[Rfam]
RNA sequence: CCUGUUCGGUGCAGCGCGCACGACAGGAUGGAAUGUGGCCUGUGCGGUCGGGACCGCACGGCUGAACCACCAA
Numbered sequence: 001c002c003u004g005u006u007c008g009g010u011g012c013a014g015c016g017c018g019c020a021c022g023a024c025a026g027g028a029u030g031g032a033a034u035g036u037g038g039c040c041u042g043u044g045c046g047g048u049c050g051g052g053a054c055c056g057c058a059c060g061g062c063u064g065a066a067c068c069a070c071c072a073a
Base pairs, nucleotide, nucleotide: 001027002026003025004024005023029069030068031067037063038062039061040060
RNA: eL15-Euryarchaeota ribosomal protein leader
Organism: Halococcus hamelinensis